[Rfam]
Nucleotides: 242
Base pairs, nucleotide, nucleotide: 013035014034015033016032020030021029022028023210025208026207038091040089041088044086045085046084047083048081049080050076051075052074054072055071056070059068060067061066125238128235129234130233131232132231133230150229151228152227153226154225155224156183157182158181161177162176163175164174189223190222191221192220193217194216195215196214198212199211
Number, partner (000 for none) and nucleotide at each position: 001000a002000a003000a004000u005000g006000g007000c008000u009000g010000c011000c012000u013035u014034g015033a016032u017000a018000a019000a020030g021029c022028u023210u024000a025208g026207c027000c028022a029021g030020c031000a032016g033015u034014c035013a036000u037000g038091u039000a040089c041088c042000g043000a044086g045085u046084c047083u048081u049080g050076c051075g052074u053000g054072g055071u056070g057000a058000u059068a060067u061066g062000g063000c064000a065000a066061c067060a068059u069000a070056c071055a072054c073000g074052g075051c076050g077000a078000a079000g080049c081048g082000u083047a084046g085045a086044c087000a088041g089040g090000g091038a092000g093000a094000u095000g096000a097000a098000c099000a100000g101000g102000c103000c104000g105000g106000a107000a108000u109000a110000a111000a112000g113000u114000g115000a116000a117000a118000a119000g120000g121000a122000u123000a124000a125238u126000u127000a128235g129234c130233c131232c132231c133230g134000a135000a136000a137000u138000c139000a140000c141000a142000c143000g144000a145000a146000u147000u148000g149000u150229g151228a152227a153226g154225u155224a156183g157182c158181c159000g160000a161177c162176c163175u164174g165000g166000u167000c168000u169000u170000g171000c172000u173000a174164u175163g176162g177161g178000g179000a180000a181158g182157g183156c184000a185000a186000a187000a188000a189223a190222c191221g192220g193217c194216a195215u196214c197000a198212c199211c200000g201000a202000u203000a204000a205000a206000g207026g208025c209000g210023a211199g212198g213000a214196g215195a216194u217193g218000c219000u220192c221191c222190g223189u224155u225154g226153c227152u228151u229150c230133c231132g232131g233130g234129g235128u236000u237000c238125g239000u240000a241000c242000c

This 242-nucleotide RNA from Lentibacillus salicampi belongs to the Rfam family "Group II catalytic intron D1-D4-6". Group II introns are found in rRNA, tRNA and mRNA of organelles in fungi, plants and protists, and also in mRNA in bacteria. Taxonomically the source falls in Lentibacillus (Bacteria, Bacillota, Caryophanales, Bacillaceae).